[Rfam]
RNA sequence: CCGGGGUGGGCAGGCCCUGCGGGCAGUUAACCCUAAUGGCGGCCGCGCCUCUCACAUCCGCCCGCUGUUUUACUCGCUGACUUUCAGCGGGCGAAGGGAGCGGCCCAGGGAAAGGGGAUGGGGUAGGGGGAGGAAAAGAGUUCCGGCCUCAAAAAAAGCCAGCGAGGGGGAUCAACACCCCGGCCCACUGGGGUCUCUGUCCCUUCCCCGCAACCGGGGAUGCUCCCGCCCUCGCCCCUCAUGGAGGCCGCGGUCGGCGGGCUCAGCGCCGCUGCCGCCGCGAAGAGUUCGUCUCUGUCAGCCUCGGUGGCGGCCGGGAGCGGAGGGCCGGCGCCCCCAGCCUGGGGGGACCCCAGCAGAGCAAAACGGGCGCGGCGCCGCUGGGCGCUGAGCAGCCGCGGCCCCCUGAGCCGUGGGGUGCGCGGUGGGCGCCGCCCCGACACCC
Numbered sequence: 001c002c003g004g005g006g007u008g009g010g011c012a013g014g015c016c017c018u019g020c021g022g023g024c025a026g027u028u029a030a031c032c033c034u035a036a037u038g039g040c041g042g043c044c045g046c047g048c049c050u051c052u053c054a055c056a057u058c059c060g061c062c063c064g065c066u067g068u069u070u071u072a073c074u075c076g077c078u079g080a081c082u083u084u085c086a087g088c089g090g091g092c093g094a095a096g097g098g099a100g101c102g103g104c105c106c107a108g109g110g111a112a113a114g115g116g117g118a119u120g121g122g123g124u125a126g127g128g129g130g131a132g133g134a135a136a137a138g139a140g141u142u143c144c145g146g147c148c149u150c151a152a153a154a155a156a157a158g159c160c161a162g163c164g165a166g167g168g169g170g171a172u173c174a175a176c177a178c179c180c181c182g183g184c185c186c187a188c189u190g191g192g193g194u195c196u197c198u199g200u201c202c203c204u205u206c207c208c209c210g211c212a213a214c215c216g217g218g219g220a221u222g223c224u225c226c227c228g229c230c231c232u233c234g235c236c237c238c239u240c241a242u243g244g245a246g247g248c249c250g251c252g253g254u255c256g257g258c259g260g261g262c263u264c265a266g267c268g269c270c271g272c273u274g275c276c277g278c279c280g281c282g283a284a285g286a287g288u289u290c291g292u293c294u295c296u297g298u299c300a301g302c303c304u305c306g307g308u309g310g311c312g313g314c315c316g317g318g319a320g321c322g323g324a325g326g327g328c329c330g331g332c333g334c335c336c337c338c339a340g341c342c343u344g345g346g347g348g349g350a351c352c353c354c355a356g357c358a359g360a361g362c363a364a365a366a367c368g369g370g371c372g373c374g375g376c377g378c379c380g381c382u383g384g385g386c387g388c389u390g391a392g393c394a395g396c397c398g399c400g401g402c403c404c405c406c407u408g409a410g411c412c413g414u415g416g417g418g419u420g421c422g423c424g425g426u427g428g429g430c431g432c433c434g435c436c437c438c439g440a441c442a443c444c445c
Base pairs, nucleotide, nucleotide: 001183002182003181004180005179006178007177008176009173012172015170016169017168018167047104048103049102050099051098059093060092061091062090063089064088065087066086067085076163077162078161079160081158082156083155084154188356189355190354191353192352193351194350216338217337218336219335221333222332223331224330225322227320229318230317231316234311235310236309238307249282250281251280252279253278255277256276257275258274260270261269262268284296285295286294287293368437369436370435371434374433375432376431377430378429379428396425397424398423399422400421403418404417405416406415
A member of the RNA family "Vertebrate telomerase RNA" from Dicaeum eximium, 445 nucleotides long. On this family, see Chen et al., Cell 2000: "Secondary structure of vertebrate telomerase RNA". About the family: Telomerase is a ribonucleoprotein reverse transcriptase that synthesises telomeric DNA. Telomerase RNAs differ greatly in sequence and structure between vertebrates, ciliates and yeasts, but they share a 5' pseudoknot structure close to the template sequence. It scores 138 bits against the family's covariance model. The family is grouped with related families in Rfam's "Telomerase clan". The family's RNA type in Rfam is non-coding RNA gene.